[Rfam]
Nucleotides: 174
Base pairs, nucleotide, nucleotide: 001174002173003172004171005170006169007168010078011077021067022066023065024064025063026062027061028060029059030058031057032056033055035053037050039048040047041046082133083132084131085130086129087128088127089126092123093122094121095120099115100114103111104110105109135166136165137164138163139162140161141160146156147155148154149153
Number, partner (000 for none) and nucleotide at each position: 001174u002173g003172a004171u005170c006169a007168c008000a009000g010078c011077c012000g013000a014000g015000c016000a017000a018000a019000g020000c021067u022066g023065g024064u025063g026062u027061a028060u029059u030058g031057c032056g033055c034000g035053u036000g037050g038000g039048g040047a041046g042000c043000u044000c045000g046041c047040u048039c049000a050037c051000c052000a053035a054000a055033g056032c057031g058030c059029g060028a061027u062026a063025c064024a065023c066022c067021a068000a069000c070000u071000u072000u073000g074000a075000g076000a077011g078010g079000c080000g081000c082133c083132c084131c085130u086129g087128c088127a089126u090000g091000a092123g093122c094121a095120u096000g097000a098000a099115g100114c101000g102000a103111u104110g105109c106000g107000a108000a109105g110104c111103a112000g113000a114100g115099c116000g117000g118000g119000a120095a121094u122093g123092c124000g125000a126089a127088u128087g129086c130085a131084g132083g133082g134000a135166g136165g137164a138163u139162u140161g141160c142000g143000g144000g145000a146156g147155c148154g149153c150000g151000a152000a153149g154148c155147g156146c157000g158000g159000a160141g161140c162139a163138a164137u165136c166135c167000g168007g169006u170005g171004a172003u173002c174001a